[Rfam]
This 102-nucleotide RNA from Desulforamulus reducens belongs to the Rfam family "Guanidine-I riboswitch aptamer". On this family, see Barrick et al., Proc Natl Acad Sci U S A 2004: "New RNA motifs suggest an expanded scope for riboswitches in bacterial genetic control". It scores 66 bits against the family's covariance model. Its family is annotated with regulation of gene expression in the Gene Ontology.
RNA sequence: GGAAAGUGUACCUAGGGUUCCACAAUCUUUUUAGGUUGGUUUGGUCCAAGCGGUACAGGCGUAUUACAGCGCUACACCUAGAGGGAUAAAAGCCCAGGCGGU
Numbered sequence: 001g002g003a004a005a006g007u008g009u010a011c012c013u014a015g016g017g018u019u020c021c022a023c024a025a026u027c028u029u030u031u032u033a034g035g036u037u038g039g040u041u042u043g044g045u046c047c048a049a050g051c052g053g054u055a056c057a058g059g060c061g062u063a064u065u066a067c068a069g070c071g072c073u074a075c076a077c078c079u080a081g082a083g084g085g086a087u088a089a090a091a092g093c094c095c096a097g098g099c100g101g102u
Stems, first nucleotide, its partner, number of pairs: 007057006015047002020044002022041001023038006058073005075097001077100001083095003